[Rfam]
Nucleotides: 138
Stems, first nucleotide, its partner, number of pairs: 001060005015046001017044004022039002025037002074130006093112002096109004
Number, partner (000 for none) and nucleotide at each position: 001060c002059c003058u004057c005056c006000c007000g008000u009000u010000c011000u012000u013000g014000g015046c016000c017044g018043g019042c020041c021000c022039c023038g024000a025037g026036c027000u028000u029000c030000c031000c032000c033000c034000g035000u036026g037025c038023c039022g040000g041020g042019g043018u044017u045000u046015g047000g048000g049000a050000u051000g052000u053000a054000g055000c056005g057004g058003a059002g060001g061000u062000a063000g064000a065000g066000g067000a068000a069000g070000c071000g072000a073000c074130c075129g076128g077127c078126g079125c080000g081000a082000a083000g084000u085000c086000u087000u088000c089000g090000g091000u092000g093112c094111c095000c096109g097108c098107g099106g100000c101000c102000u103000g104000a105000u106099c107098c108097g109096c110000c111094g112093g113000u114000c115000c116000u117000a118000c119000c120000c121000u122000c123000a124000c125079g126078u127077g128076c129075c130074g131000g132000g133000a134000c135000a136000c137000g138000c